[Rfam]
The record is a 111-nucleotide sequence from Teichococcus cervicalis, which matches "TPP riboswitch aptamer (THI element)" in Rfam. Vitamin B(1) in its active form thiamin pyrophosphate (TPP) is an essential coenzyme that is synthesised by coupling of pyrimidine and thiazole moieties in bacteria. Pairs were carried over by alignment from the consensus structure, which is taken from published work.
RNA sequence: CUCGACAUCGGGGGGAGCCCGCGGCGCGGGCUGAGAGGCAGGGAUGGGCCCUGCGACCCCUAGAACCUGAUCCGGGUCAUGCCGGCGAAGGGAUCGGUGGUGGGCAUGCGG
Numbered sequence: 001c002u003c004g005a006c007a008u009c010g011g012g013g014g015g016a017g018c019c020c021g022c023g024g025c026g027c028g029g030g031c032u033g034a035g036a037g038g039c040a041g042g043g044a045u046g047g048g049c050c051c052u053g054c055g056a057c058c059c060c061u062a063g064a065a066c067c068u069g070a071u072c073c074g075g076g077u078c079a080u081g082c083c084g085g086c087g088a089a090g091g092g093a094u095c096g097g098u099g100g101u102g103g104g105c106a107u108g109c110g111g
Stems, first nucleotide, its partner, number of pairs: 006099005011060004017031005038054005066091003072085004